[Rfam]
RNA: GA-cis RNA
RNA sequence: AGUAGGAGGCCCCAAAUGAUGCGAAGCAUCAUUUUUACAUGGGGCCGACGAACUGCCGCCGAAGCUUUAGCUGAGGAGGCGACACCAUAA
Numbered sequence: 001a002g003u004a005g006g007a008g009g010c011c012c013c014a015a016a017u018g019a020u021g022c023g024a025a026g027c028a029u030c031a032u033u034u035u036u037a038c039a040u041g042g043g044g045c046c047g048a049c050g051a052a053c054u055g056c057c058g059c060c061g062a063a064g065c066u067u068u069a070g071c072u073g074a075g076g077a078g079g080c081g082a083c084a085c086c087a088u089a090a
Base pairs, nucleotide, nucleotide: 008046009045010044011043012042013041016032017031018030019029020028021027055080056079057078059076060075063072064071